Small nucleolar RNA SNORD34: an 82-nucleotide RNA sequence from Salix purpurea.
RNA sequence: GAGGCCUAUGAUGAUUCAAAUUUGCCUACAUUGUCUGAUAGUCUAGCCAAUGACUGAAACAUAGACUAGCUCUGAGGCCUUC
Numbered sequence: 001g002a003g004g005c006c007u008a009u010g011a012u013g014a015u016u017c018a019a020a021u022u023u024g025c026c027u028a029c030a031u032u033g034u035c036u037g038a039u040a041g042u043c044u045a046g047c048c049a050a051u052g053a054c055u056g057a058a059a060c061a062u063a064g065a066c067u068a069g070c071u072c073u074g075a076g077g078c079c080u081u082c
Stems, first nucleotide, its partner, number of pairs: 001081001003079004
Its Rfam clan is "SNORD34 clan". Its family is annotated with nucleolus and RNA processing in the Gene Ontology. A reference for the family is Galardi et al. (2002), "Purified box C/D snoRNPs are able to reproduce site-specific 2'-O-methylation of target RNA in vitro", Mol Cell Biol. Rfam classes the family as a C/D-box small nucleolar RNA. Rfam's curators write: snoRNA U34 is found in intron 5 of the ribosomal protein L13a gene in humans. The match comes from Rfam's covariance-model search (44 bits). NCBI's taxonomy places the organism under Eukaryota, Embryophyta, eudicotyledons, Salicaceae, Salix.